[Rfam]
RNA sequence: AAGUCAGGAACGGGAGACACUGGCCGCAAGGUCAGGGCCGAAGGAGCAACCGCCCCGGUAAACUCUCAGGCAAAAGGACCGGUCUGACAAA
Numbered sequence: 001a002a003g004u005c006a007g008g009a010a011c012g013g014g015a016g017a018c019a020c021u022g023g024c025c026g027c028a029a030g031g032u033c034a035g036g037g038c039c040g041a042a043g044g045a046g047c048a049a050c051c052g053c054c055c056c057g058g059u060a061a062a063c064u065c066u067c068a069g070g071c072a073a074a075a076g077g078a079c080c081g082g083u084c085u086g087a088c089a090a091a
Stems, first nucleotide, its partner, number of pairs: 007085003011081003020035004037071003040067002044065003050058002
A member of the RNA family "Glycine riboswitch aptamer" from Rhodobacter aestuarii, 91 nucleotides long.
A search with the family's covariance model found it, with a score of 61 bits.
NCBI's taxonomy places the organism under Bacteria, Pseudomonadati, Pseudomonadota, Alphaproteobacteria, Rhodobacter.
Gene Ontology term of the family: glycine biosynthetic process.